[Rfam]
RNA sequence: GGGCAUGUGACGAGUUACUCGGAUUCCCCUUCAAGACUUUAAGGGUGCUGUAAACCCGAGUUUCUGAUGCU
Numbered sequence: 001g002g003g004c005a006u007g008u009g010a011c012g013a014g015u016u017a018c019u020c021g022g023a024u025u026c027c028c029c030u031u032c033a034a035g036a037c038u039u040u041a042a043g044g045g046u047g048c049u050g051u052a053a054a055c056c057c058g059a060g061u062u063u064c065u066g067a068u069g070c071u
Stems, first nucleotide, its partner, number of pairs: 002071004
RNA: Small nucleolar RNA snoR60